[Rfam]
RNA sequence: UGACAUAAGACUCACCCAUAGAAAACAUCCGUGACUGCUUGCAGGCAAAGGAUGUUUUCUAUGUGGGGAGUAAAACAAUAUGAGUAUGAAGGACGACAGUCCGGAAUACGAAUAUUGGUUGCAAUUUCGAGAGUGCGCAGCACAUAGAAAUUGCUUAUGAUA
Number, nucleotide and partner (000 for none) at each position: 001u162002g161003a000004c159005a158006u157007a156008a000009g000010a000011c070012u069013c068014a000015c000016c000017c063018a062019u061020a060021g059022a058023a057024a056025a055026c054027a053028u052029c051030c050031g000032u048033g046034a000035c044036u043037g042038c000039u000040u000041g000042c037043a036044g035045g000046c033047a000048a032049a000050g030051g029052a028053u027054g026055u025056u024057u023058u022059c021060u020061a019062u018063g017064u000065g000066g000067g000068g013069a012070g011071u000072a000073a000074a119075a000076c117077a116078a115079u114080a113081u112082g000083a000084g109085u108086a107087u106088g000089a000090a000091g102092g101093a100094c099095g000096a000097c000098a000099g094100u093101c092102c091103g000104g000105a000106a087107u086108a085109c084110g000111a000112a081113u080114a079115u078116u077117g076118g000119u074120u000121g000122c153123a152124a151125u150126u149127u148128c147129g000130a000131g000132a000133g143134u142135g141136c140137g000138c000139a000140g136141c135142a134143c133144a000145u000146a000147g128148a127149a126150a125151u124152u123153g122154c000155u000156u007157a006158u005159g004160a000161u002162a001
The record is a 162-nucleotide sequence from Firmicutes bacterium AF22-6AC, which matches "Clostridiales-1 RNA" in Rfam. The organism belongs to Bacillota, within Bacteria. By type it is a small RNA.